A member of the RNA family "c-di-AMP riboswitch aptamer (ydaO/yuaA leader)" from Actinomadura hallensis, 178 nucleotides long. Rfam's curators write: This family represents a conserved RNA structure found upstream of the ydaO and yuaA genes in Bacillus subtilis and related genes in other bacteria. Rfam links the family to the GO terms regulation of gene expression and cyclic-di-AMP binding.
[Rfam]
RNA sequence: GGGGCGGCGACGCCGAGUCCGCGUCCUGCGCGGAGCCGGGGAACCAAGCGCGAGCGAUGUCCGGGCCAUGCGGUCCGUGCCGCUCGCAGGGGUGAAUCGACGCCUCUUGAGCGAGCGUCGUAGGGCGACUUCCAGCCCGAAUCCGUCAGCUAACCCGGUAGGCGGCAUGGAAGGAGCA
Numbered sequence: 001g002g003g004g005c006g007g008c009g010a011c012g013c014c015g016a017g018u019c020c021g022c023g024u025c026c027u028g029c030g031c032g033g034a035g036c037c038g039g040g041g042a043a044c045c046a047a048g049c050g051c052g053a054g055c056g057a058u059g060u061c062c063g064g065g066c067c068a069u070g071c072g073g074u075c076c077g078u079g080c081c082g083c084u085c086g087c088a089g090g091g092g093u094g095a096a097u098c099g100a101c102g103c104c105u106c107u108u109g110a111g112c113g114a115g116c117g118u119c120g121u122a123g124g125g126c127g128a129c130u131u132c133c134a135g136c137c138c139g140a141a142u143c144c145g146u147c148a149g150c151u152a153a154c155c156c157g158g159u160a161g162g163c164g165g166c167a168u169g170g171a172a173g174g175a176g177c178a
Stems, first nucleotide, its partner, number of pairs: 011164004018034006035159006045089001090144003098120006123138004